[Rfam]
RNA: mir-9242 microRNA precursor family
RNA sequence: GGCCCCCCUCUGUGGGGCAAUUGAUGGGGGGGCUCUGCGAUCGAUCGCCCCACAGAGGGAGGCC
Numbered sequence: 001g002g003c004c005c006c007c008c009u010c011u012g013u014g015g016g017g018c019a020a021u022u023g024a025u026g027g028g029g030g031g032g033c034u035c036u037g038c039g040a041u042c043g044a045u046c047g048c049c050c051c052a053c054a055g056a057g058g059g060a061g062g063c064c
Base pairs, nucleotide, nucleotide: 001064002063003062004061006059007058008057009056010055011054012053013052014051015050016049017048018047020045021044022043023042024041025040027038029036030035
Dot-bracket structure: ((((.(((((((((((((.((((((.(.((....)).).)))))).))))))))))))).))))